RNA sequence: UUGGGGAGUAGCCUUCCUUCCGCCGCGGAAGGAGAGCGCGUCAACAUACUCGGCCUCUGGCCGUGGCGCGCUCGACCGGUUCGGUUUGGCGAGACCAUGGGUGCAUUGCGUCGUUCCUGGUCGGACGGCGGCGGAUGCGCCAUGGUUCGUCGACGUCCGACC
Numbered sequence: 001u002u003g004g005g006g007a008g009u010a011g012c013c014u015u016c017c018u019u020c021c022g023c024c025g026c027g028g029a030a031g032g033a034g035a036g037c038g039c040g041u042c043a044a045c046a047u048a049c050u051c052g053g054c055c056u057c058u059g060g061c062c063g064u065g066g067c068g069c070g071c072u073c074g075a076c077c078g079g080u081u082c083g084g085u086u087u088g089g090c091g092a093g094a095c096c097a098u099g100g101g102u103g104c105a106u107u108g109c110g111u112c113g114u115u116c117c118u119g120g121u122c123g124g125a126c127g128g129c130g131g132c133g134g135a136u137g138c139g140c141c142a143u144g145g146u147u148c149g150u151c152g153a154c155g156u157c158c159g160a161c162c
Stems, first nucleotide, its partner, number of pairs: 016032003034073010051063005078162003